This 83-nucleotide sequence from Phasianus colchicus belongs to the Rfam family "Small nucleolar RNA Z159/U59". The literature on the family includes a 2003 paper in Nucleic Acids Res by Chen et al., "The high diversity of snoRNAs in plants: identification and comparative study of 120 snoRNA genes from Oryza sativa". By type it is a C/D-box small nucleolar RNA. Its family is annotated with RNA processing and nucleolus in the Gene Ontology. The base pairs follow the family's consensus structure, which was predicted with PFOLD. Clan: SNORD59 clan.

[Rfam]
RNA sequence: GGGUUUGAUUUAGUUACAUUUUUUUUUUUUAGUUCUGCUUAUAUUAUAAUGGGAAAACAAUUUGGGGCCUUAACUGAAAACAA
Numbered sequence: 001g002g003g004u005u006u007g008a009u010u011u012a013g014u015u016a017c018a019u020u021u022u023u024u025u026u027u028u029u030u031a032g033u034u035c036u037g038c039u040u041a042u043a044u045u046a047u048a049a050u051g052g053g054a055a056a057a058c059a060a061u062u063u064g065g066g067g068c069c070u071u072a073a074c075u076g077a078a079a080a081c082a083a
Base pairs, nucleotide, nucleotide: 003081004080005079006078
Dot-bracket structure: ..((((.......................................................................))))..